[Rfam]
RNA: miR-430 microRNA precursor family
RNA sequence: UGUAUUUCCCCAACUGAAGCACAGACUUGUGUUGUGAGAGCAGUAAGUGCUAUUAGUUGUGGUAAUGUUG
Dot-bracket structure: ...(((.((.(.((((((((((..(((..............)))..))))).))))).).)).)))....
Numbered sequence: 001u002g003u004a005u006u007u008c009c010c011c012a013a014c015u016g017a018a019g020c021a022c023a024g025a026c027u028u029g030u031g032u033u034g035u036g037a038g039a040g041c042a043g044u045a046a047g048u049g050c051u052a053u054u055a056g057u058u059g060u061g062g063u064a065a066u067g068u069u070g
Stems, first nucleotide, its partner, number of pairs: 004066003008062002011059001013057005018051005025044003